The record is a 47-nucleotide RNA sequence from Microbacterium bovistercoris, which matches "Guanidine-II riboswitch aptamer (mini-ykkC)" in Rfam. Simpler in structure and has fewer highly conserved nucleotide positions than the ykkC-yxkD leader. Despite this each of its two stem-loop structures directly bind free guanidine. For this family Rfam cites "Identification of 22 candidate structured RNAs in bacteria using the CMfinder comparative genomics pipeline" (Weinberg et al., Nucleic Acids Res, 2007).

RNA sequence: CCCGCGGGACGACCCGCAGGUGGCACUCACAGGCAGGGACGGCCCCG
Numbered sequence: 001c002c003c004g005c006g007g008g009a010c011g012a013c014c015c016g017c018a019g020g021u022g023g024c025a026c027u028c029a030c031a032g033g034c035a036g037g038g039a040c041g042g043c044c045c046c047g
Base pairs, nucleotide, nucleotide: 001020002019004017005016006015007014008013034047036045037044038043
Lineage of the source: Bacteria > Bacillati > Actinomycetota > Micrococcales > Microbacterium.